[Rfam]
RNA: Lysine riboswitch aptamer
Organism: Cetobacterium somerae
RNA sequence: AUACAAGGUAGAGGUUGCAAAGGACAAGAGUAGAUUGGUGGAGCUAGACAAGGCUUUGAAGUCAAUUGAAAGGGGAGUUUGCCGAAAUAAAAAUUCGUCAAAAUUUUUAUUGGGGAUAUAGAGAAUAUCUAUAUAACUGUCAUUAGGUAUCUAAUGUUGUGCUAUCCAAAGU
Numbered sequence: 001a002u003a004c005a006a007g008g009u010a011g012a013g014g015u016u017g018c019a020a021a022g023g024a025c026a027a028g029a030g031u032a033g034a035u036u037g038g039u040g041g042a043g044c045u046a047g048a049c050a051a052g053g054c055u056u057u058g059a060a061g062u063c064a065a066u067u068g069a070a071a072g073g074g075g076a077g078u079u080u081g082c083c084g085a086a087a088u089a090a091a092a093a094u095u096c097g098u099c100a101a102a103a104u105u106u107u108u109a110u111u112g113g114g115g116a117u118a119u120a121g122a123g124a125a126u127a128u129c130u131a132u133a134u135a136a137c138u139g140u141c142a143u144u145a146g147g148u149a150u151c152u153a154a155u156g157u158u159g160u161g162c163u164a165u166c167c168a169a170a171g172u
Base pairs, nucleotide, nucleotide: 007166008165009164010163011162017082018081019080020079021078025074033067034066035065036064037063038062039061086111087110088109089108090107091106092105093104094103095102112138113137116134117133118132119131120130121129122128141156142155143154144153145152146151